[Rfam]
RNA sequence: UCGUCAGUGCGGUACAUCCUGACCUGCCCCGCCCUGCGGGCAGCGCGUGAUGAGCCCUGCGCGAUGACGUCGUGAUUACGUCACGCGGGCGGCGCGGGUGCACGCAACAAAACCCGCGCCGGGCCCCAGAC
Numbered sequence: 001u002c003g004u005c006a007g008u009g010c011g012g013u014a015c016a017u018c019c020u021g022a023c024c025u026g027c028c029c030c031g032c033c034c035u036g037c038g039g040g041c042a043g044c045g046c047g048u049g050a051u052g053a054g055c056c057c058u059g060c061g062c063g064a065u066g067a068c069g070u071c072g073u074g075a076u077u078a079c080g081u082c083a084c085g086c087g088g089g090c091g092g093c094g095c096g097g098g099u100g101c102a103c104g105c106a107a108c109a110a111a112a113c114c115c116g117c118g119c120c121g122g123g124c125c126c127c128a129g130a131c
Stems, first nucleotide, its partner, number of pairs: 024043003028040005068085001070083001072081001073078001091120009
RNA: U8 small nucleolar RNA
Organism: Chloropsis cyanopogon